[Rfam]
Notes:
The family of this 103-nucleotide RNA sequence is "L4-Archaeoglobi ribosomal protein leades". For this family Rfam cites "Discovery of 20 novel ribosomal leader candidates in bacteria and archaea" (Eckert and Weinberg, BMC Microbiol, 2020).
RNA sequence: CUGAAGGCCGCGUCUGGGUCAAUUGCGGACUGCAACACCCAAUCUCGCUCAUGGUGCCGCCGAAUAUGGCGACACCCCAAGAGGGAGAGCGCGUCACCGUCAG
Number, nucleotide and partner (000 for none) at each position: 001c103002u102003g101004a100005a000006g000007g000008c000009c093010g092011c091012g090013u089014c000015u041016g040017g039018g038019u000020c000021a000022a000023u035024u034025g033026c032027g031028g000029a000030c000031u027032g026033c025034a024035a023036c000037a000038c018039c017040c016041a015042a000043u088044c087045u086046c085047g000048c083049u082050c081051a000052u079053g078054g077055u000056g000057c000058c000059g000060c000061c000062g000063a000064a000065u000066a000067u000068g000069g000070c000071g000072a000073c000074a000075c000076c000077c054078c053079a052080a000081g050082a049083g048084g000085g046086a045087g044088a043089g013090c012091g011092c010093g009094u000095c000096a000097c000098c000099g000100u004101c003102a002103g001

Rfam's curators put it in the seed alignment.